The record is a 90-nucleotide RNA from Microcaecilia unicolor, which matches "mir-965 microRNA precursor family" in Rfam. The organism belongs to Microcaecilia, within Eukaryota. Rfam links the family to the GO terms RISC complex and miRNA-mediated post-transcriptional gene silencing. A reference for the family is Huang et al. (2012), "The regulation of silkworm fibroin L chain production by miRNA-965 and miRNA-1926 in insect cells", Bioorg Khim.
[Rfam]
RNA sequence: AUAUCUAAGGGAAAAGUUCUACUCUAAUGCAGCCUACUUUCUGGGAUGCGCAAGUAGGCUGCAUUAGAGUAGAACUUUUCCCUUAGAUAU
Numbered sequence: 001a002u003a004u005c006u007a008a009g010g011g012a013a014a015a016g017u018u019c020u021a022c023u024c025u026a027a028u029g030c031a032g033c034c035u036a037c038u039u040u041c042u043g044g045g046a047u048g049c050g051c052a053a054g055u056a057g058g059c060u061g062c063a064u065u066a067g068a069g070u071a072g073a074a075c076u077u078u079u080c081c082c083u084u085a086g087a088u089a090u
Base pairs, nucleotide, nucleotide: 003088004087005086006085007084009082010081011080013078014077017074018073019072020071021070024067025066026065027064028063029062030061031060032059033058034057035056036055037054038053039052